[Rfam]
RNA: HNH endonuclease-associated RNA and ORF (HEARO) RNA
RNA sequence: GUAAGCAACCCCUGCCUAAAGGCUAGGGGCUUCGACAAAUGUUGAAGCCCAGCUUACCAGACUAAGUACUUCGUGUACUACGUUCAGAAUAAGUGUUAAAGUUUCUACCUACAAAUGCGUAGCUAGUUUGUAGCUCUAGAACCAAAAGAUUAAACAUCUGUAUGGGUUAAGGAAGUGUCUUUUGGAUAGUACCCCUUCGGGGUAUGCGCAAAGCGCACGGCUU
Numbered sequence: 001g002u003a004a005g006c007a008a009c010c011c012c013u014g015c016c017u018a019a020a021g022g023c024u025a026g027g028g029g030c031u032u033c034g035a036c037a038a039a040u041g042u043u044g045a046a047g048c049c050c051a052g053c054u055u056a057c058c059a060g061a062c063u064a065a066g067u068a069c070u071u072c073g074u075g076u077a078c079u080a081c082g083u084u085c086a087g088a089a090u091a092a093g094u095g096u097u098a099a100a101g102u103u104u105c106u107a108c109c110u111a112c113a114a115a116u117g118c119g120u121a122g123c124u125a126g127u128u129u130g131u132a133g134c135u136c137u138a139g140a141a142c143c144a145a146a147a148g149a150u151u152a153a154a155c156a157u158c159u160g161u162a163u164g165g166g167u168u169a170a171g172g173a174a175g176u177g178u179c180u181u182u183u184g185g186a187u188a189g190u191a192c193c194c195c196u197u198c199g200g201g202g203u204a205u206g207c208g209c210a211a212a213g214c215g216c217a218c219g220g221c222u223u
Stems, first nucleotide, its partner, number of pairs: 001057006010029002012026002015022002030047007060209001063206002065079005082203004087198001091197003095193001104140002109133008122214003142185009154176002157173003162167001
Dot-bracket structure: ((((((...((((.((....))..)).))(((((((....)))))))....))))))..(..(((((((.....)))))..((((.(...(((.(........((...((((((((.....[[[.)))))))).....)).(((((((((...((.(((..(....)...))).))))))))))).......).)))).)))).))..)..]]].........